The family of this 135-nucleotide RNA from Coregonus sp. 'balchen' is "Small nucleolar RNA SNORA5". The organism belongs to Coregonus, within Eukaryota.

RNA sequence: UGAAAGUCUUGUCAAAUUCAGUUUGUCCUCUACAAUGGACCGCAUUGGCCAAAAUGGCUGCCACAUUGAACCUGUACUUCAUGGACCUUACAUUCCUUUUCGAUGGCUGUUGGGGUUUUUGGAGAAAUGUCCUCU
Numbered sequence: 001u002g003a004a005a006g007u008c009u010u011g012u013c014a015a016a017u018u019c020a021g022u023u024u025g026u027c028c029u030c031u032a033c034a035a036u037g038g039a040c041c042g043c044a045u046u047g048g049c050c051a052a053a054a055u056g057g058c059u060g061c062c063a064c065a066u067u068g069a070a071c072c073u074g075u076a077c078u079u080c081a082u083g084g085a086c087c088u089u090a091c092a093u094u095c096c097u098u099u100u101c102g103a104u105g106g107c108u109g110u111u112g113g114g115g116u117u118u119u120u121g122g123a124g125a126a127a128u129g130u131c132c133u134c135u
Base pairs, nucleotide, nucleotide: 002061005059006058019047020046021045022044024042025041028038029037075126077124078123079122086113087112090110091109

It scores 35 bits against the family's covariance model. The family's consensus secondary structure was predicted with RNAfold. Rfam describes the family as follows. ACA5 is a member of the H/ACA class of snoRNA that guide the sites of modification of uridines to pseudouridines.